[Rfam]
RNA sequence: UACCGGCGAUUGAUCACGCCGCAGUCUGGCACCCGGCUUGCCCCCUGCCGCGUCAGACCGGACAAAGGCUCAACCCCCUCUCCGGGCCUUUGUUCUUCUAUCAUGCCGCCACGACCGCUCCCCUCCCGGUCGUGGCGGUUUUUG
Numbered sequence: 001u002a003c004c005g006g007c008g009a010u011u012g013a014u015c016a017c018g019c020c021g022c023a024g025u026c027u028g029g030c031a032c033c034c035g036g037c038u039u040g041c042c043c044c045c046u047g048c049c050g051c052g053u054c055a056g057a058c059c060g061g062a063c064a065a066a067g068g069c070u071c072a073a074c075c076c077c078c079u080c081u082c083c084g085g086g087c088c089u090u091u092g093u094u095c096u097u098c099u100a101u102c103a104u105g106c107c108g109c110c111a112c113g114a115c116c117g118c119u120c121c122c123c124u125c126c127c128g129g130u131c132g133u134g135g136c137g138g139u140u141u142u143u144g
Stems, first nucleotide, its partner, number of pairs: 025057006035049003060095011103140001106138012